[Rfam]
RNA sequence: CUGCAGCUAAUUAAGCCGACUAGGUUGCUCUUCAAUGGGGGCCUGGUGUGCAAAAGCCAUAAACAGCAGUUUCUUUUGUACGAAUACAGCCUGUUGCAUGUAUGAGUUCCCAUCAGAGACUUGGGCCAUUC
Numbered sequence: 001c002u003g004c005a006g007c008u009a010a011u012u013a014a015g016c017c018g019a020c021u022a023g024g025u026u027g028c029u030c031u032u033c034a035a036u037g038g039g040g041g042c043c044u045g046g047u048g049u050g051c052a053a054a055a056g057c058c059a060u061a062a063a064c065a066g067c068a069g070u071u072u073c074u075u076u077u078g079u080a081c082g083a084a085u086a087c088a089g090c091c092u093g094u095u096g097c098a099u100g101u102a103u104g105a106g107u108u109c110c111c112a113u114c115a116g117a118g119a120c121u122u123g124g125g126c127c128a129u130u131c
Stems, first nucleotide, its partner, number of pairs: 002052004019047004025041002028038001078120002088108003092104001

Source information: A member of the RNA family "Small nucleolar RNA SNORA70" from Peromyscus maniculatus, 131 nucleotides long. The match comes from Rfam's covariance-model search (72 bits). Gene Ontology terms of the family: nucleolus and RNA processing. About the family: snoRNA U70 seems to be exclusive to mammals and is a member of the H/ACA class of snoRNA which contain H (ANANNA) and ACA box motifs. H/ACA box snoRNAs are involved in the conversion of uridines to pseudouridines (5-ribosyluracil) a constituent of structural RNAs (transfer, ribosomal, small nuclear, and small nucleolar). The literature on the family includes a 2000 paper in IUBMB Life by Charette and Gray, "Pseudouridine in RNA: what, where, how, and why". It is annotated as an H/ACA-box small nucleolar RNA. The base pairs follow the family's consensus structure, which was predicted with PFOLD.